[Rfam]
RNA sequence: GCCGAGCCAUUUAACAAAGGCUUGUAACCCAUGUGGGGCUUUAAGAUGGUCAAAGGUUGGCUCUUAGAAUUUGGUUGGGACUCUGAAGUUGUCUACUUGUUCGCUUAACCCAAGAAGGAAAUUGGGCCUCGCAUUAUCGACGAAAGUCCAAAGUGUAACGCCAUUAGAUCGAAGGAAACUGCAUGAGGUUGGCUUUAUAUAGAGCAGUGUCUCCUUUUGCUCUCUUCGGUGAAUGGAUAACGUGCAAUUCUUUAGAGCCCAAUAACACCUUGUACGAAGUCCUAAACUCGACAAACUUU
Numbered sequence: 001g002c003c004g005a006g007c008c009a010u011u012u013a014a015c016a017a018a019g020g021c022u023u024g025u026a027a028c029c030c031a032u033g034u035g036g037g038g039c040u041u042u043a044a045g046a047u048g049g050u051c052a053a054a055g056g057u058u059g060g061c062u063c064u065u066a067g068a069a070u071u072u073g074g075u076u077g078g079g080a081c082u083c084u085g086a087a088g089u090u091g092u093c094u095a096c097u098u099g100u101u102c103g104c105u106u107a108a109c110c111c112a113a114g115a116a117g118g119a120a121a122u123u124g125g126g127c128c129u130c131g132c133a134u135u136a137u138c139g140a141c142g143a144a145a146g147u148c149c150a151a152a153g154u155g156u157a158a159c160g161c162c163a164u165u166a167g168a169u170c171g172a173a174g175g176a177a178a179c180u181g182c183a184u185g186a187g188g189u190u191g192g193c194u195u196u197a198u199a200u201a202g203a204g205c206a207g208u209g210u211c212u213c214c215u216u217u218u219g220c221u222c223u224c225u226u227c228g229g230u231g232a233a234u235g236g237a238u239a240a241c242g243u244g245c246a247a248u249u250c251u252u253u254a255g256a257g258c259c260c261a262a263u264a265a266c267a268c269c270u271u272g273u274a275c276g277a278a279g280u281c282c283u284a285a286a287c288u289c290g291a292c293a294a295a296c297u298u299u
Base pairs, nucleotide, nucleotide: 001039002038004023005022006021007020008019010017011016028037029036030035043298044297045296047294049292050291051290055288056287057285058284059283060281062279064277065276067275069273070272073269074268075267078260079259081257082256083255084254085253086252087251088250091249097247098246099245100244102242103241105236106235108234111231112230114227115226116225117224118223120221122219125162126161127160129158131156132155133154134153135152137150139148140147141146171217172216173215174214175213176212181210182209183208184207189202190201191200

Record summary
This 299-nucleotide RNA from Cucumis melo belongs to the Rfam family "Plant signal recognition particle RNA". Its family is annotated with SRP-dependent cotranslational protein targeting to membrane, signal sequence recognition and signal recognition particle, endoplasmic reticulum targeting in the Gene Ontology. Rfam classes the family as a non-coding RNA gene. The base pairs follow the family's consensus structure, which is taken from published work. The source organism's lineage runs through Eukaryota, Viridiplantae, Streptophytina, Mesangiospermae and Cucumis.